[Rfam]
RNA sequence: GUUCUUACAAUUGCCGGUUAAGUGUCGAUUAACUUUAACCAGAUGUUGUAAGAACGA
Number, nucleotide and partner (000 for none) at each position: 001g055002u054003u053004c052005u051006u050007a049008c048009a047010a046011u045012u000013g000014c042015c000016g040017g039018u038019u037020a036021a035022g034023u000024g033025u032026c000027g000028a000029u000030u000031a000032a025033c024034u022035u021036u020037a019038a018039c017040c016041a000042g014043a000044u000045g011046u010047u009048g008049u007050a006051a005052g004053a003054a002055c001056g000057a000

Shown here is a 57-nucleotide RNA sequence from Acyrthosiphon pisum, a member of the family "mir-3015 microRNA precursor family". Pairs were carried over by alignment from the consensus structure, which was predicted with RNAalifold. Its family is annotated with RISC complex and miRNA-mediated post-transcriptional gene silencing in the Gene Ontology.